Background
Shown here is a 102-nucleotide RNA sequence from Roseovarius sp. THAF27, a member of the family "TPP riboswitch aptamer (THI element)".
Nucleotides: 102
Base pairs, nucleotide, nucleotide: 006090007089008088009087010086011052012051013050014049016046017029018028019027020026036045037044038043058083059082060081061080064077065076066075067074
Number, partner (000 for none) and nucleotide at each position: 001000u002000a003000u004000c005000a006090u007089c008088c009087g010086u011052c012051g013050g014049g015000g016046g017029g018028c019027c020026c021000g022000c023000a024000a025000a026020g027019g028018g029017c030000u031000g032000a033000g034000a035000g036045g037044u038043g039000c040000a041000c042000g043038c044037a045036c046016c047000g048000a049014c050013c051012c052011g053000u054000c055000g056000a057000a058083c059082c060081u061080g062000a063000u064077c065076c066075g067074g068000g069000c070000a071000a072000u073000a074067c075066c076065g077064g078000c079000g080061u081060a082059g083058g084000g085000a086010a087009c088008g089007g090006g091000u092000a093000g094000a095000a096000c097000g098000u099000g100000c101000a102000c
Taxonomically the source falls in Roseovarius (Bacteria, Pseudomonadati, Pseudomonadota, Alphaproteobacteria). The match comes from Rfam's covariance-model search (80 bits).